[Rfam]
RNA: Small nucleolar RNA SNORA72
RNA sequence: CUGCAAACAGCCUCGCUCUUCUGGUCCACUAGAAAUCGGGACAGGCUGAACACUGACUAUGUUAAGGUCAUGGAUGUAUCCCCAGACCUAGUUGUUUCCCUAGGUGCGAUAUUAUAAAUUCUGGUGAUAAGC
Number, nucleotide and partner (000 for none) at each position: 001c000002u000003g057004c000005a000006a000007a000008c000009a000010g000011c000012c000013u000014c000015g000016c044017u043018c000019u041020u040021c039022u038023g037024g036025u035026c000027c000028a000029c000030u000031a000032g000033a000034a000035a025036u024037c023038g022039g021040g020041a019042c000043a017044g016045g000046c000047u000048g000049a000050a000051c000052a000053c000054u000055g000056a000057c003058u000059a000060u000061g000062u000063u000064a000065a000066g000067g125068u124069c123070a122071u000072g121073g120074a000075u000076g000077u000078a000079u000080c000081c000082c000083c108084a000085g000086a105087c104088c103089u102090a101091g100092u000093u000094g000095u000096u000097u000098c000099c000100c091101u090102a089103g088104g087105u086106g000107c000108g083109a000110u000111a000112u000113u000114a000115u000116a000117a000118a000119u000120u073121c072122u070123g069124g068125u067126g000127a000128u000129a000130a000131g000132c000